[Rfam]
RNA sequence: UCUGGCUGUGAUGAUUCACUUGCCCUCACUGCAAAUCUACUUCAGUGAUGAUACUGAAUGUGUAGCUGAGCCAGC
Dot-bracket structure: .(((((...............................................................))))).
About this RNA: The family of this 75-nucleotide RNA from Polypterus senegalus is "Small nucleolar RNA SNORD103/SNORD85". The family's RNA type in Rfam is C/D-box small nucleolar RNA.